Description:
Shown here is a 116-nucleotide RNA from a Thermoflexales bacterium, a member of the family "SAM riboswitch aptamer (S box leader)". About the family: The SAM riboswitch is found upstream of a number of genes which code for proteins involved in methionine or cysteine biosynthesis in Gram-positive bacteria. Taxonomically the source falls in Thermoflexales (Bacteria, Bacillati, Chloroflexota, Thermoflexia). It scores 82 bits against the family's covariance model.
RNA sequence: CUCUUAUCCAGAGAGGCGGAGGGACCGGCCCGUUGAUGCCUCGACAACCUGCCUAAGGUCGCAUAGCGACCGACAGCAAGGUGCCAAUUCCGGCAGAAGAUUCUGGAAGAUGAGAG
Numbered sequence: 001c002u003c004u005u006a007u008c009c010a011g012a013g014a015g016g017c018g019g020a021g022g023g024a025c026c027g028g029c030c031c032g033u034u035g036a037u038g039c040c041u042c043g044a045c046a047a048c049c050u051g052c053c054u055a056a057g058g059u060c061g062c063a064u065a066g067c068g069a070c071c072g073a074c075a076g077c078a079a080g081g082u083g084c085c086a087a088u089u090c091c092g093g094c095a096g097a098a099g100a101u102u103c104u105g106g107a108a109g110a111u112g113a114g115a116g
Stems, first nucleotide, its partner, number of pairs: 001116008013042005021031003025093004043085001045083002048081002050078003089108001094105004
Dot-bracket structure: ((((((((....(((((...(((.[[[[)))......)))))(.((.(((((.......................))).)))).)...(]]]]((((....))))..)))))))))